RNA sequence: AUGCGAUGAGUCGAUAAUGGUUUUUCGAAACCAUUUUUGCGCAGGGAAGUCAUUAACGCAGGAGCGGACUUUGAAAGGAUGUGUGAACCGUCUUUUCACACUGAUAAAGUGCCCUUAAUCCCUUUCCAUUUGGAGAGGGAUUUUU
Numbered sequence: 001a002u003g004c005g006a007u008g009a010g011u012c013g014a015u016a017a018u019g020g021u022u023u024u025u026c027g028a029a030a031c032c033a034u035u036u037u038u039g040c041g042c043a044g045g046g047a048a049g050u051c052a053u054u055a056a057c058g059c060a061g062g063a064g065c066g067g068a069c070u071u072u073g074a075a076a077g078g079a080u081g082u083g084u085g086a087a088c089c090g091u092c093u094u095u096u097c098a099c100a101c102u103g104a105u106a107a108a109g110u111g112c113c114c115u116u117a118a119u120c121c122c123u124u125u126c127c128a129u130u131u132g133g134a135g136a137g138g139g140a141u142u143u144u145u
Stems, first nucleotide, its partner, number of pairs: 012039003016035001018033006043115004047071004057066003072098008099111004119140009